[Rfam]
RNA: TPP riboswitch aptamer (THI element)
RNA sequence: ACCCCAUCCCCGGGGAGCCCCUGCGCAGGCAGGGGUUGAGAGCGGAAUAGCCCGCGACCCGUUGAACCUGAUCCGGGUCAUACCGGCGGAGGGAGGGUCGGCGUUCCGCAC
Numbered sequence: 001a002c003c004c005c006a007u008c009c010c011c012g013g014g015g016a017g018c019c020c021c022u023g024c025g026c027a028g029g030c031a032g033g034g035g036u037u038g039a040g041a042g043c044g045g046a047a048u049a050g051c052c053c054g055c056g057a058c059c060c061g062u063u064g065a066a067c068c069u070g071a072u073c074c075g076g077g078u079c080a081u082a083c084c085g086g087c088g089g090a091g092g093g094a095g096g097g098u099c100g101g102c103g104u105u106c107c108g109c110a111c
Base pairs, nucleotide, nucleotide: 008097009096010095011061012060013059014058017036018035019034020033021032022031023030043054044053045052067092068091069090073086074085075084076083